Record summary: The family of this 58-nucleotide RNA sequence from Rhodospirillum rubrum is "terC RNA". The family has 129 seed sequences and 1,112 matches in Rfam 15.1. It is annotated as a cis-regulatory element. The base pairs follow the family's consensus structure, which is taken from published work. Lineage of the source: Bacteria > Alphaproteobacteria > Rhodospirillales > Rhodospirillum > Rhodospirillum rubrum.
[Rfam]
RNA sequence: ACCCGGGUCCGGGCCCCUCUGGCGGUGACGGCGGUCACCGCGAUGUCGGACCUUUCCG
Numbered sequence: 001a002c003c004c005g006g007g008u009c010c011g012g013g014c015c016c017c018u019c020u021g022g023c024g025g026u027g028a029c030g031g032c033g034g035u036c037a038c039c040g041c042g043a044u045g046u047c048g049g050a051c052c053u054u055u056c057c058g
Base pairs, nucleotide, nucleotide: 006052007051008050009049010048011047012046022041023040024039025038026037027036028035029034